[Rfam]
RNA sequence: UGGGAGGCUGAUACCCAAGUAGAGAAAAGCUUUGCUCUAAUUGUCACAAGCUCUCCCUAUAACAACAUUGCCUUUUGAUGACCGGGAUGAAUUGAGAGAAAUUGUAACGGACAGAUACGGGGCAUACAAGU
Numbered sequence: 001u002g003g004g005a006g007g008c009u010g011a012u013a014c015c016c017a018a019g020u021a022g023a024g025a026a027a028a029g030c031u032u033u034g035c036u037c038u039a040a041u042u043g044u045c046a047c048a049a050g051c052u053c054u055c056c057c058u059a060u061a062a063c064a065a066c067a068u069u070g071c072c073u074u075u076u077g078a079u080g081a082c083c084g085g086g087a088u089g090a091a092u093u094g095a096g097a098g099a100a101a102u103u104g105u106a107a108c109g110g111a112c113a114g115a116u117a118c119g120g121g122g123c124a125u126a127c128a129a130g131u
Stems, first nucleotide, its partner, number of pairs: 002057006016043003022037003069124006082110003087105004